[Rfam]
RNA sequence: UUUUAUUAUAGCUCUGUUAAUGGGGUAGGAUCCGAGACGCCUUUCGGGGUUAUCCUACCCAACUCCUAUUCCGUCACGUCCUCGUCGUACAGAGUGGCAACUUUCCCCACCACAUAUCCAAGCUUGGGUACACGGGCCUGUCCCAACCUCUUGGUCGGAUGGUGGAGUAAGGCUAAACAGGAGGGG
Numbered sequence: 001u002u003u004u005a006u007u008a009u010a011g012c013u014c015u016g017u018u019a020a021u022g023g024g025g026u027a028g029g030a031u032c033c034g035a036g037a038c039g040c041c042u043u044u045c046g047g048g049g050u051u052a053u054c055c056u057a058c059c060c061a062a063c064u065c066c067u068a069u070u071c072c073g074u075c076a077c078g079u080c081c082u083c084g085u086c087g088u089a090c091a092g093a094g095u096g097g098c099a100a101c102u103u104u105c106c107c108c109a110c111c112a113c114a115u116a117u118c119c120a121a122g123c124u125u126g127g128g129u130a131c132a133c134g135g136g137c138c139u140g141u142c143c144c145a146a147c148c149u150c151u152u153g154g155u156c157g158g159a160u161g162g163u164g165g166a167g168u169a170a171g172g173c174u175a176a177a178c179a180g181g182a183g184g185g186g
Base pairs, nucleotide, nucleotide: 011095012094013093014092015091016090017089023060024059025058026057027056028055029054030053032049033048064186065185066184067183069182070181072180076088077087078086080097081096101171102170103169105167108164109163110162111161116160117159118158119157124146125145126144127143128142149154

This 186-nucleotide RNA from Anopheles stephensi belongs to the Rfam family "drz-agam-2-2 ribozyme".
Lineage of the source: Eukaryota > Insecta > Aparaglossata > Culicomorpha > Neocellia.
Rfam links the family to the GO term catalytic activity.